Notes: This 139-nucleotide RNA sequence from Takifugu flavidus belongs to the Rfam family "Small nucleolar RNA SNORA29". The source organism's lineage runs through Eukaryota, Bilateria, Neoteleostei, Euacanthomorphacea and Takifugu.
[Rfam]
RNA sequence: GGUCCCAUUUCAGUACCUUCCACUCGCUUUAAAAUGAAUGGAUGGCUAUGCUAAUGGGAGAGAAAAACGCUGUCAUGGUCUGAGGGUGUGGCUAACCUAACUGUGUACCACACUAAAUAAAAUGACAGAACAUCCGAAU
Dot-bracket structure: ...((((........((.(......................).)).........)))).............((((..............((.....................))........)))).............
Numbered sequence: 001g002g003u004c005c006c007a008u009u010u011c012a013g014u015a016c017c018u019u020c021c022a023c024u025c026g027c028u029u030u031a032a033a034a035u036g037a038a039u040g041g042a043u044g045g046c047u048a049u050g051c052u053a054a055u056g057g058g059a060g061a062g063a064a065a066a067a068c069g070c071u072g073u074c075a076u077g078g079u080c081u082g083a084g085g086g087u088g089u090g091g092c093u094a095a096c097c098u099a100a101c102u103g104u105g106u107a108c109c110a111c112a113c114u115a116a117a118u119a120a121a122a123u124g125a126c127a128g129a130a131c132a133u134c135c136g137a138a139u
Stems, first nucleotide, its partner, number of pairs: 004058004016045002019042001072126004090114002
For this family Rfam cites "RNomics: an experimental approach that identifies 201 candidates for novel, small, non-messenger RNAs in mouse" (Huttenhofer et al., EMBO J, 2001). By type it is an H/ACA-box small nucleolar RNA.